[Rfam]
RNA sequence: AAUAUGUGAUGAAAAAAUGUUUCGGUCCCAGCUGAUGUACAGUGAUAAGUUACAUUUUUCUGAUGUU
Numbered sequence: 001a002a003u004a005u006g007u008g009a010u011g012a013a014a015a016a017a018u019g020u021u022u023c024g025g026u027c028c029c030a031g032c033u034g035a036u037g038u039a040c041a042g043u044g045a046u047a048a049g050u051u052a053c054a055u056u057u058u059u060c061u062g063a064u065g066u067u
Base pairs, nucleotide, nucleotide: 001067002066003065004064